RNA sequence: ACCAUCAAGGAGCUGCAGGACAAGAAUCUUGUGGCCACCAUUAAGCACUCCAAGAUUGUCCUGCAGAUUGACAAU
Numbered sequence: 001a002c003c004a005u006c007a008a009g010g011a012g013c014u015g016c017a018g019g020a021c022a023a024g025a026a027u028c029u030u031g032u033g034g035c036c037a038c039c040a041u042u043a044a045g046c047a048c049u050c051c052a053a054g055a056u057u058g059u060c061c062u063g064c065a066g067a068u069u070g071a072c073a074a075u
Stems, first nucleotide, its partner, number of pairs: 010069002013066011027055005033049002